RNA sequence: UGUCUCCUCCAACACCUCUCAAGGUUUGGAUUCAGCCCGCAACGAAAGUUAGCGGGCUUUUUUUU
Numbered sequence: 001u002g003u004c005u006c007c008u009c010c011a012a013c014a015c016c017u018c019u020c021a022a023g024g025u026u027u028g029g030a031u032u033c034a035g036c037c038c039g040c041a042a043c044g045a046a047a048g049u050u051a052g053c054g055g056g057c058u059u060u061u062u063u064u065u
Base pairs, nucleotide, nucleotide: 008030009029010028011027012026015023034058035057036056037055038054039053040052
A member of the RNA family "Betaproteobacteria toxic small RNA" from Collimonas fungivorans, 65 nucleotides long. Overexpression in amino aid rich medium attenuates growth, suggesting role in repressing amino acid intake and metabolism. Rfam 15.1 lists 951 matches to the family in 508 species.